[Rfam]
RNA sequence: AGCUCAUCGAGAGGGACUGAGGGAACGGCCCGUCGAAGUCCCGGCAACCGCCACGAGCCUCCGCGCCGGCACCCGCUGGUCGUGCGUUCGUGGAAACGGUGCUAAUUCCGGCCCGGCGCGAGAGACGCGGUGGGGAAGAUGAGGA
Numbered sequence: 001a002g003c004u005c006a007u008c009g010a011g012a013g014g015g016a017c018u019g020a021g022g023g024a025a026c027g028g029c030c031c032g033u034c035g036a037a038g039u040c041c042c043g044g045c046a047a048c049c050g051c052c053a054c055g056a057g058c059c060u061c062c063g064c065g066c067c068g069g070c071a072c073c074c075g076c077u078g079g080u081c082g083u084g085c086g087u088u089c090g091u092g093g094a095a096a097c098g099g100u101g102c103u104a105a106u107u108c109c110g111g112c113c114c115g116g117c118g119c120g121a122g123a124g125a126c127g128c129g130g131u132g133g134g135g136a137a138g139a140u141g142a143g144g145a
Stems, first nucleotide, its partner, number of pairs: 003143006013042005021031003026110003043103004048099002052093001107137001112134004117129004
Dot-bracket structure: ..((((((....(((((...(((..[[[)))......)))))((((.((..(........................................)....))))))...(]]].((((.((((.....)))).))))..)))))))..

A member of the RNA family "SAM riboswitch aptamer (S box leader)" from Nocardioides marinus, 145 nucleotides long. It scores 65 bits against the family's covariance model.